[Rfam]
Shown here is a 90-nucleotide RNA sequence from Carlito syrichta, a member of the family "Small nucleolar RNA U83B". About the family: U83B belongs to the C/D family of snoRNAs. The source organism's lineage runs through Eukaryota, Eumetazoa, Bilateria, Haplorrhini and Carlito. On this family, see Jady and Kiss, Nucleic Acids Res 2000: "Characterisation of the U83 and U84 small nucleolar RNAs: two novel 2'-O-ribose methylation guide RNAs that lack complementarities to ribosomal RNAs". Rfam 15.1 lists 966 matches to the family in 652 species. Its family is annotated with RNA processing and nucleolus in the Gene Ontology. The pairing is the family consensus, mapped onto this sequence. The family's RNA type in Rfam is C/D-box small nucleolar RNA. A search with the family's covariance model found it, with a score of 72 bits.
RNA sequence: GCUGUCCGGUGGUGAGGCCUGGGCUGAGCGCUGACACAGCGCCCGAAGCAAACUGGAACCGUUCCUUGUUGCCUUCCUUCUCAGAGCAGC
Numbered sequence: 001g002c003u004g005u006c007c008g009g010u011g012g013u014g015a016g017g018c019c020u021g022g023g024c025u026g027a028g029c030g031c032u033g034a035c036a037c038a039g040c041g042c043c044c045g046a047a048g049c050a051a052a053c054u055g056g057a058a059c060c061g062u063u064c065c066u067u068g069u070u071g072c073c074u075u076c077c078u079u080c081u082c083a084g085a086g087c088a089g090c
Base pairs, nucleotide, nucleotide: 001090002089003088004087005086